RNA sequence: AGACUAGAAGGGCAAACUUGCCGAAAGACAAGGACGCAAAGCCACGGGCCUAAAGUACCAGCAACAGCUACGGCAGCCGGGUUUCUAUA
Dot-bracket structure: ...........((...((((.(....).))))...))..((((.((((((....((..........))...)))..)))))))......
The record is an 89-nucleotide RNA sequence from Paenibacillus macerans, which matches "c-di-GMP-I riboswitch aptamer" in Rfam. The organism belongs to Paenibacillus, within Bacteria. It scores 73 bits against the family's covariance model.